c-di-AMP riboswitch aptamer (ydaO/yuaA leader): a 184-nucleotide RNA from Nocardia terpenica.
[Rfam]
RNA sequence: CGGACCCCGACGCAGACCAGGGGCGAGGGCGGGGAACCCACGUUCCCUACGCAGGGAAGCGGGAACGGUCGGAAACGAACGCUCCCUUGGGGUGAAGUCCCGUGGCGGCCCCACCGCACCGGGACCGGACGGCCUCUCAGUCCGAACCCGACAGCUCACCUCGCAGGCGCGUACGAGAGGGAGU
Numbered sequence: 001c002g003g004a005c006c007c008c009g010a011c012g013c014a015g016a017c018c019a020g021g022g023g024c025g026a027g028g029g030c031g032g033g034g035a036a037c038c039c040a041c042g043u044u045c046c047c048u049a050c051g052c053a054g055g056g057a058a059g060c061g062g063g064a065a066c067g068g069u070c071g072g073a074a075a076c077g078a079a080c081g082c083u084c085c086c087u088u089g090g091g092g093u094g095a096a097g098u099c100c101c102g103u104g105g106c107g108g109c110c111c112c113a114c115c116g117c118a119c120c121g122g123g124a125c126c127g128g129a130c131g132g133c134c135u136c137u138c139a140g141u142c143c144g145a146a147c148c149c150g151a152c153a154g155c156u157c158a159c160c161u162c163g164c165a166g167g168c169g170c171g172u173a174c175g176a177g178a179g180g181g182a183g184u
Stems, first nucleotide, its partner, number of pairs: 001166001005028002029164006039089002090149003098124004127143004

Lineage of the source: Bacteria > Bacillati > Actinomycetes > Nocardiaceae > Nocardia.